The record is an 89-nucleotide sequence from Kalanchoe fedtschenkoi, which matches "Small nucleolar RNA snoR53Y" in Rfam. Rfam classes the family as a C/D-box small nucleolar RNA. The literature on the family includes a 2001 paper in RNA by Brown et al., "Multiple snoRNA gene clusters from Arabidopsis". The source organism's lineage runs through Eukaryota, Streptophyta, Mesangiospermae, Pentapetalae and Kalanchoe. Clan: snoR53 clan. Its family is annotated with nucleolus and RNA processing in the Gene Ontology.
RNA sequence: CUUCCCUGUGAUGGAAUUUGUUGAACCAUGCUAAUUCUGAUCACACGUGACGUGAUCGAAAAAAUCUUCAUUCAAUUUCUGAGGGAGGG
Numbered sequence: 001c002u003u004c005c006c007u008g009u010g011a012u013g014g015a016a017u018u019u020g021u022u023g024a025a026c027c028a029u030g031c032u033a034a035u036u037c038u039g040a041u042c043a044c045a046c047g048u049g050a051c052g053u054g055a056u057c058g059a060a061a062a063a064a065u066c067u068u069c070a071u072u073c074a075a076u077u078u079c080u081g082a083g084g085g086a087g088g089g
Stems, first nucleotide, its partner, number of pairs: 001088007